[Rfam]
RNA sequence: CAGGUUGGACGACCUUCCUGCGCUUCCUGAUGUCCGGGGACGACCCCA
Numbered sequence: 001c002a003g004g005u006u007g008g009a010c011g012a013c014c015u016u017c018c019u020g021c022g023c024u025u026c027c028u029g030a031u032g033u034c035c036g037g038g039g040a041c042g043a044c045c046c047c048a
Base pairs, nucleotide, nucleotide: 001020002019003018004017007014008013036047037046038045039044